[Rfam]
RNA sequence: UGUGUAGAGGCGAGAAAAUUACUGUGUGUAUCUUGGUAAAUUUCUUGCCUUUCACAAU
Numbered sequence: 001u002g003u004g005u006a007g008a009g010g011c012g013a014g015a016a017a018a019u020u021a022c023u024g025u026g027u028g029u030a031u032c033u034u035g036g037u038a039a040a041u042u043u044c045u046u047g048c049c050u051u052u053c054a055c056a057a058u
Stems, first nucleotide, its partner, number of pairs: 002055003006052012021037003
This 58-nucleotide sequence from Phascolarctos cinereus belongs to the Rfam family "mir-7398 microRNA precursor family". It scores 63 bits against the family's covariance model. Rfam 15.1 lists 132 matches to the family in 4 species. NCBI's taxonomy places the organism under Eukaryota, Metazoa, Gnathostomata, Phascolarctidae, Phascolarctos. Its family is annotated with miRNA-mediated post-transcriptional gene silencing and RISC complex in the Gene Ontology.